[Rfam]
RNA sequence: CGUUCGAUCCGGGCCCCUCUGGCGGCUUUUCGUGCGUUGUCCCGCACGGGCCGUGAUGUCGGAUCUUUCAC
Numbered sequence: 001c002g003u004u005c006g007a008u009c010c011g012g013g014c015c016c017c018u019c020u021g022g023c024g025g026c027u028u029u030u031c032g033u034g035c036g037u038u039g040u041c042c043c044g045c046a047c048g049g050g051c052c053g054u055g056a057u058g059u060c061g062g063a064u065c066u067u068u069c070a071c
Stems, first nucleotide, its partner, number of pairs: 006065007022054005027048001029046001
Shown here is a 71-nucleotide RNA sequence from Rhodovulum sp. PH10, a member of the family "terC RNA". The source organism's lineage runs through Bacteria, Pseudomonadota, Rhodobacterales, Paracoccaceae and Rhodovulum. The family's consensus secondary structure is taken from published work.